[Rfam]
RNA sequence: GCUUUCAACAUCCCCGUUUCACGAGCGGAAAGCGCGCCUUGCGCGAACGACUCGGUGAGACUGAAGGC
Numbered sequence: 001g002c003u004u005u006c007a008a009c010a011u012c013c014c015c016g017u018u019u020c021a022c023g024a025g026c027g028g029a030a031a032g033c034g035c036g037c038c039u040u041g042c043g044c045g046a047a048c049g050a051c052u053c054g055g056u057g058a059g060a061c062u063g064a065a066g067g068c
Stems, first nucleotide, its partner, number of pairs: 001068007013054001016061007024052002028048001

The family of this 68-nucleotide sequence from Granulicella rosea is "nadA riboswitch".
It is annotated as a small RNA.
Pairs were carried over by alignment from the consensus structure, which is taken from published work.
The source organism's lineage runs through Bacteria, Terriglobia, Terriglobales, Acidobacteriaceae and Granulicella.
On this family, see Huang et al., RNA 2020: "Structure and ligand binding of the ADP-binding domain of the NAD(+) riboswitch".